[Rfam]
RNA sequence: CGCUUAUCCAGAAAGACUGAGGGACAGGGCCCGCUGACGUCUUAGCAACCUCCUAAACUAGGUGCUAACUCCCUUUCCAACCUCAUGUUGGAUGAAGAUAGGCG
Numbered sequence: 001c002g003c004u005u006a007u008c009c010a011g012a013a014a015g016a017c018u019g020a021g022g023g024a025c026a027g028g029g030c031c032c033g034c035u036g037a038c039g040u041c042u043u044a045g046c047a048a049c050c051u052c053c054u055a056a057a058c059u060a061g062g063u064g065c066u067a068a069c070u071c072c073c074u075u076u077c078c079a080a081c082c083u084c085a086u087g088u089u090g091g092a093u094g095a096a097g098a099u100a101g102g103c104g
Stems, first nucleotide, its partner, number of pairs: 001104008013043005021032003026074004044066004049062002070096001076092005
Dot-bracket structure: ((((((((....(((((...(((..[[[[)))......)))))((((.((..........))))))...(]]]].(((((.......)))))...)))))))))